[Rfam]
RNA: Eukaryotic large subunit ribosomal RNA, nucleotides 1 to 424
RNA sequence: UGACCUCAAAUCAGGUAGGAAUACCCGCUGAACUUAAGCAUAUCAAUAAGCGGAGGAAAAGAAACCAACCGGGAUUGCCUCAGUAACGGCGAGUGAAGCGGCAAAAGCUCAAAUUUGAAAUCUGGCGCCUCUUGGUGCCCGAGUUGUAAUUUGUAGAGGCGACUUUUGGGGCCGGUCCUUGUCUAUGUUCCUUGGAACAGGACGUCAUGGAGGGUGAGAAUCCCGUGUGGCGAGGACAGACGAGCUCCUUGUAAAGCGUUCUCGAAGAGUCGAGUUGUUUGGGAAUGCAGCUCUAAGUGGGUGGUAAAUUCCAUCUAAAGCUAAAUACAGGCGAGAGACCGAUAGCGAACAAGUACAGUGAUGGAAAGAUGAAAAGAACUUUGAAAAGAGAGUGAAAAAGUACGUGAAAUUGUUGAAAGGGAAG
Numbered sequence: 001u002g003a004c005c006u007c008a009a010a011u012c013a014g015g016u017a018g019g020a021a022u023a024c025c026c027g028c029u030g031a032a033c034u035u036a037a038g039c040a041u042a043u044c045a046a047u048a049a050g051c052g053g054a055g056g057a058a059a060a061g062a063a064a065c066c067a068a069c070c071g072g073g074a075u076u077g078c079c080u081c082a083g084u085a086a087c088g089g090c091g092a093g094u095g096a097a098g099c100g101g102c103a104a105a106a107g108c109u110c111a112a113a114u115u116u117g118a119a120a121u122c123u124g125g126c127g128c129c130u131c132u133u134g135g136u137g138c139c140c141g142a143g144u145u146g147u148a149a150u151u152u153g154u155a156g157a158g159g160c161g162a163c164u165u166u167u168g169g170g171g172c173c174g175g176u177c178c179u180u181g182u183c184u185a186u187g188u189u190c191c192u193u194g195g196a197a198c199a200g201g202a203c204g205u206c207a208u209g210g211a212g213g214g215u216g217a218g219a220a221u222c223c224c225g226u227g228u229g230g231c232g233a234g235g236a237c238a239g240a241c242g243a244g245c246u247c248c249u250u251g252u253a254a255a256g257c258g259u260u261c262u263c264g265a266a267g268a269g270u271c272g273a274g275u276u277g278u279u280u281g282g283g284a285a286u287g288c289a290g291c292u293c294u295a296a297g298u299g300g301g302u303g304g305u306a307a308a309u310u311c312c313a314u315c316u317a318a319a320g321c322u323a324a325a326u327a328c329a330g331g332c333g334a335g336a337g338a339c340c341g342a343u344a345g346c347g348a349a350c351a352a353g354u355a356c357a358g359u360g361a362u363g364g365a366a367a368g369a370u371g372a373a374a375a376g377a378a379c380u381u382u383g384a385a386a387a388g389a390g391a392g393u394g395a396a397a398a399a400g401u402a403c404g405u406g407a408a409a410u411u412g413u414u415g416a417a418a419g420g421g422a423a424g
Stems, first nucleotide, its partner, number of pairs: 024055001025053005035042002065072002076103004086094002106322004112151004118145002121142002124139004156263002158260004163256004168247003173242002177235007187203001189202004206210001213223002272293007299316005356363002379390004